[Rfam]
A member of the RNA family "TPP riboswitch aptamer (THI element)" from Bacillus aquiflavi, 103 nucleotides long. Pairs were carried over by alignment from the consensus structure, which is taken from published work.
RNA sequence: GUGUAACACUAGGGGGGCCGUACUGGCUGAGAUUGAACUUUGUUCUAGACCCUUUGAACCUGAACUGGUUAAUACCUGCGUAGGGAAGUGGCGAUCAUCAUUA
Numbered sequence: 001g002u003g004u005a006a007c008a009c010u011a012g013g014g015g016g017g018c019c020g021u022a023c024u025g026g027c028u029g030a031g032a033u034u035g036a037a038c039u040u041u042g043u044u045c046u047a048g049a050c051c052c053u054u055u056g057a058a059c060c061u062g063a064a065c066u067g068g069u070u071a072a073u074a075c076c077u078g079c080g081u082a083g084g085g086a087a088g089u090g091g092c093g094a095u096c097a098u099c100a101u102u103a
Stems, first nucleotide, its partner, number of pairs: 007090004011053004017027004035045004059084004065078001067076002